[Rfam]
This 34-nucleotide RNA sequence from Desemzia incerta belongs to the Rfam family "L31-Firmicutes ribosomal protein leader". A search with the family's covariance model found it, with a score of 34 bits. Pairs were carried over by alignment from the consensus structure, which is taken from published work. On this family, see Eckert and Weinberg, BMC Microbiol 2020: "Discovery of 20 novel ribosomal leader candidates in bacteria and archaea". Its Rfam clan is "Ribosomal Protein L31 Leader clan". Lineage of the source: Bacteria > Bacillota > Bacilli > Carnobacteriaceae > Desemzia.
RNA sequence: CUCUGAUUCAGCAGAUGAUUCAGGGCAUAAGGAG
Numbered sequence: 001c002u003c004u005g006a007u008u009c010a011g012c013a014g015a016u017g018a019u020u021c022a023g024g025g026c027a028u029a030a031g032g033a034g
Base pairs, nucleotide, nucleotide: 001025002024003023004022005021008018009017010016